[Rfam]
RNA sequence: GGCAUCACUGAUGAUAAUCUGGCUCCCUCUACUGAUUAUGGUGAGGAAAGUGCCACUGUUACCCAAUUUUGUCUGAGAUGCA
Numbered sequence: 001g002g003c004a005u006c007a008c009u010g011a012u013g014a015u016a017a018u019c020u021g022g023c024u025c026c027c028u029c030u031a032c033u034g035a036u037u038a039u040g041g042u043g044a045g046g047a048a049a050g051u052g053c054c055a056c057u058g059u060u061a062c063c064c065a066a067u068u069u070u071g072u073c074u075g076a077g078a079u080g081c082a
Stems, first nucleotide, its partner, number of pairs: 002081005
The record is an 82-nucleotide sequence from Tetraodon nigroviridis, which matches "Small nucleolar RNA SNORD100" in Rfam. On this family, see Galardi et al., Mol Cell Biol 2002: "Purified box C/D snoRNPs are able to reproduce site-specific 2'-O-methylation of target RNA in vitro". Lineage of the source: Eukaryota > Gnathostomata > Neoteleostei > Eurypterygia > Tetraodon. Rfam 15.1 lists 838 matches to the family in 626 species. Its Rfam clan is "SNORD100 clan". Rfam classes the family as a C/D-box small nucleolar RNA. Pairs were carried over by alignment from the consensus structure, which was predicted with RNAalifold.